[Rfam]
RNA sequence: GUCCAAUGCCCUCCUUGGGCGUUUCCUCCCUAGACUUCGACCGCGCUGUGCGAACGGCGCGGUUUUUUUUGAGAUGU
Numbered sequence: 001g002u003c004c005a006a007u008g009c010c011c012u013c014c015u016u017g018g019g020c021g022u023u024u025c026c027u028c029c030c031u032a033g034a035c036u037u038c039g040a041c042c043g044c045g046c047u048g049u050g051c052g053a054a055c056g057g058c059g060c061g062g063u064u065u066u067u068u069u070u071g072a073g074a075u076g077u
Base pairs, nucleotide, nucleotide: 008020009019010018011017041062042061043060044059045058046057047056048055049054

A member of the RNA family "Makes More Granules Regulator RNA (mmgR)" from Pseudaminobacter soli, 77 nucleotides long. The base pairs follow the family's consensus structure. The family is grouped with related families in Rfam's "suhB sRNA clan". NCBI's taxonomy places the organism under Bacteria, Pseudomonadati, Pseudomonadota, Phyllobacteriaceae, Pseudaminobacter. SuhB later renamed mmgR (makes more granules regulator) was a putative non-coding RNA found multiple times in the Agrobacterium tumefaciens genome and related alpha-proteobacteria. Other non-coding RNAs uncovered in the same analysis include: speF, ybhL, metA, and serC.Several studies inSinorhizobium meliloti showed that suhB element is indeed a non-coding RNA:firstly it was detected on Northern blot and called Sm8RNA, secondly in an RNAseq study referred to as SmelC689.The mutant phenotype's (strain lacking the small RNA) cytoplasm contains higher content of polyhydroxybutyrate (PBH)storage granules than wild type strain. The sRNA is required to limit the PBH intracellular accumulation when the nitrogen-fixing Sinorhizobium meliloti is under condition of surplus carbon in relation to nitrogen. It has been renamed to mmgR. Further study confirmed that mmgR fine-tunes the regulation of PBH storage.Northern blot confirmed the expression of the sRNA in other rhizobia species. MmgR homologues were found in most alpha-proteobacteria.